[Rfam]
RNA sequence: CUAAGUCACUAGGGGUGCCCUCAGCGCUUCUGCGCUGCCGGGCUGAGAUCACACCCUCCGAACCUGAUCCGGGUCAUGCCGGCGCAGGGAAGUGAGAAGAGACGCUC
Numbered sequence: 001c002u003a004a005g006u007c008a009c010u011a012g013g014g015g016u017g018c019c020c021u022c023a024g025c026g027c028u029u030c031u032g033c034g035c036u037g038c039c040g041g042g043c044u045g046a047g048a049u050c051a052c053a054c055c056c057u058c059c060g061a062a063c064c065u066g067a068u069c070c071g072g073g074u075c076a077u078g079c080c081g082g083c084g085c086a087g088g089g090a091a092g093u094g095a096g097a098a099g100a101g102a103c104g105c106u107c
Stems, first nucleotide, its partner, number of pairs: 006095005011057004016051001017043004063088004069082004

The record is a 107-nucleotide RNA sequence from Synechococcus sp. GFB01, which matches "TPP riboswitch aptamer (THI element)" in Rfam. Rfam's curators write: Vitamin B(1) in its active form thiamin pyrophosphate (TPP) is an essential coenzyme that is synthesised by coupling of pyrimidine and thiazole moieties in bacteria. The previously detected thiamin-regulatory element, thi box was extended, resulting in a new, highly conserved RNA secondary structure, the THI element, which is widely distributed in eubacteria and also occurs in some archaea. Analysis of operon structures identified a large number of new candidate thiamin-regulated genes, mostly transporters, in various prokaryotic organisms. The THI element is a riboswitch that directly binds to TPP to regulate gene expression through a variety of mechanisms in archaea, bacteria and eukaryotes. through a variety of mechanisms in archaea, bacteria and eukaryotes. Tandem TPP riboswitches have been reported where both TPP riboswitches respond independently to TPP. The structure of TPP riboswitch has been reported for Escherichia coli and Arabidopsis thaliana. A search with the family's covariance model found it, with a score of 73 bits. The source organism's lineage runs through Bacteria, Bacillati, Cyanophyceae, Synechococcaceae and Synechococcus.